[Rfam]
Rfam assigns this 83-nucleotide RNA sequence from Cardinalis cardinalis to the family "Small nucleolar RNA SNORD72". The literature on the family includes a 2001 paper in EMBO J by Huttenhofer et al., "RNomics: an experimental approach that identifies 201 candidates for novel, small, non-messenger RNAs in mouse". About the family: snoRNA HBII-240 belongs to the CD family of snoRNAs. It is the human orthologue of the mouse MBII-240 and is predicted to guide 2'O-ribose methylation of the large 28S rRNA at residue U4590. The source organism's lineage runs through Eukaryota, Tetrapoda, Theropoda, Coelurosauria and Cardinalis. The match comes from Rfam's covariance-model search (43 bits). Gene Ontology terms of the family: RNA processing and nucleolus.

Nucleotides: 083
Stems, first nucleotide, its partner, number of pairs: 002082001004080002007077002
Number, partner (000 for none) and nucleotide at each position: 001000c002082a003000a004080u005079u006000u007077u008076u009000a010000a011000u012000a013000a014000u015000g016000u017000g018000u019000u020000u021000u022000u023000u024000u025000u026000a027000a028000a029000a030000a031000a032000g033000g034000u035000c036000u037000g038000a039000a040000c041000g042000g043000g044000u045000g046000a047000a048000c049000u050000g051000u052000g053000u054000a055000g056000u057000g058000a059000u060000u061000u062000c063000a064000g065000u066000g067000c068000a069000u070000u071000a072000c073000u074000g075000a076008g077007a078000u079005a080004a081000a082002u083000u